[Rfam]
This 352-nucleotide RNA sequence from Candidatus Endoriftia persephonae belongs to the Rfam family "Bacterial RNase P class A". Rfam classes the family as a ribozyme.

RNA sequence: GGAGUCGGCCGGACAGUCGCUGCCUCGGCAACGAGGUGGAGGAAAGUCCGGGCUCCACAGGGGCAGGGUGCCAGGUAACGCCUGGGGGACGCAAGUCUACGGAAAGUGCCGCAGAAAAGAUACCGCCUAAGCGCCUUUAGGCGCCGGUAAGGGUGAAAUGGUGCGGUAAGAGCGCACCGCGCUGACGGUAACGCCAGUGGCAGGGUAAACCCCACCCGGAGCAAGACCAAAUAGGGGAGCAUUGGUGUGGCCCGCAUCGCUCCCGGGUAGGUUGCUUGAGGUGCACGGUGACGUGCAUCCCAGAUGAAUGGGCUGUCCUCGACAGAACCCGGCUUACAGGCCGGCUCCCCCU
Numbered sequence: 001g002g003a004g005u006c007g008g009c010c011g012g013a014c015a016g017u018c019g020c021u022g023c024c025u026c027g028g029c030a031a032c033g034a035g036g037u038g039g040a041g042g043a044a045a046g047u048c049c050g051g052g053c054u055c056c057a058c059a060g061g062g063g064c065a066g067g068g069u070g071c072c073a074g075g076u077a078a079c080g081c082c083u084g085g086g087g088g089a090c091g092c093a094a095g096u097c098u099a100c101g102g103a104a105a106g107u108g109c110c111g112c113a114g115a116a117a118a119g120a121u122a123c124c125g126c127c128u129a130a131g132c133g134c135c136u137u138u139a140g141g142c143g144c145c146g147g148u149a150a151g152g153g154u155g156a157a158a159u160g161g162u163g164c165g166g167u168a169a170g171a172g173c174g175c176a177c178c179g180c181g182c183u184g185a186c187g188g189u190a191a192c193g194c195c196a197g198u199g200g201c202a203g204g205g206u207a208a209a210c211c212c213c214a215c216c217c218g219g220a221g222c223a224a225g226a227c228c229a230a231a232u233a234g235g236g237g238a239g240c241a242u243u244g245g246u247g248u249g250g251c252c253c254g255c256a257u258c259g260c261u262c263c264c265g266g267g268u269a270g271g272u273u274g275c276u277u278g279a280g281g282u283g284c285a286c287g288g289u290g291a292c293g294u295g296c297a298u299c300c301c302a303g304a305u306g307a308a309u310g311g312g313c314u315g316u317c318c319u320c321g322a323c324a325g326a327a328c329c330c331g332g333c334u335u336a337c338a339g340g341c342c343g344g345c346u347c348c349c350c351c352u
Stems, first nucleotide, its partner, number of pairs: 001348010011337001012317007020039008044335003048332005053221004061253004066217005071085005086100001087098004101212002106210002108206003123152002125148003131144005160178006179201001180199005186193002225273004235264006244258005280299008